[Rfam]
RNA sequence: CGUACGAAAGGGCAAAGCCAUUGAAAAGUGGUGUCGCAAAACUAGAGGGGCUAAGAUUUUUAUAAAUUAUGCCAGCCAGUUACCGAA
Numbered sequence: 001c002g003u004a005c006g007a008a009a010g011g012g013c014a015a016a017g018c019c020a021u022u023g024a025a026a027a028g029u030g031g032u033g034u035c036g037c038a039a040a041a042c043u044a045g046a047g048g049g050g051c052u053a054a055g056a057u058u059u060u061u062a063u064a065a066a067u068u069a070u071g072c073c074a075g076c077c078a079g080u081u082a083c084c085g086a087a
Stems, first nucleotide, its partner, number of pairs: 012037002017032006040081004047077002049073003056067004
Rfam assigns this 87-nucleotide sequence from Neobacillus cucumis to the family "c-di-GMP-I riboswitch aptamer". The source organism's lineage runs through Bacteria, Bacillati, Bacilli, Caryophanales and Neobacillus. A search with the family's covariance model found it, with a score of 78 bits.